[Rfam]
This 61-nucleotide RNA from Otolemur garnettii belongs to the Rfam family "U7 small nuclear RNA". Rfam's curators write: Animal histone pre-mRNAs are spliced by a different mechanism than nuclear pre-mRNAs and self-splicing introns. Lineage of the source: Eukaryota > Chordata > Tetrapoda > Euarchontoglires > Otolemur. For this family Rfam cites "3' end processing of mouse histone pre-mRNA: evidence for additional base-pairing between U7 snRNA and pre-mRNA" (Spycher et al., Nucleic Acids Res, 1994). Pairs were carried over by alignment from the consensus structure, which was predicted with PFOLD.
RNA sequence: AUACAUUAUAGCUCUUUCAGAAUUUUUCUGGUAGGUUUUCUGACUUUUACUGGAAACCAUC
Numbered sequence: 001a002u003a004c005a006u007u008a009u010a011g012c013u014c015u016u017u018c019a020g021a022a023u024u025u026u027u028c029u030g031g032u033a034g035g036u037u038u039u040c041u042g043a044c045u046u047u048u049a050c051u052g053g054a055a056a057c058c059a060u061c
Base pairs, nucleotide, nucleotide: 034058035057036056037055038054039053040052042050